[Rfam]
Notes
The record is a 134-nucleotide sequence from Anabas testudineus, which matches "Small nucleolar RNA SNORD94" in Rfam. Rfam links the family to the GO terms nucleolus and RNA processing. A search with the family's covariance model found it, with a score of 81 bits. On this family, see Galardi et al., Mol Cell Biol 2002: "Purified box C/D snoRNPs are able to reproduce site-specific 2'-O-methylation of target RNA in vitro".
RNA sequence: UCUGUGAUGAUGAGAGGCGCAGGGGUACGGACCUCAGCCGGUCAUGGGGGCUGAGUGCUGCUGGAGUCUGAUCGGAGAACGAGUGGUUCUCUGUGGGACGACAGCAGCACGAGACAGACGCCUGUCUGAACAGA
Dot-bracket structure: (((((............................................................................................................................)))))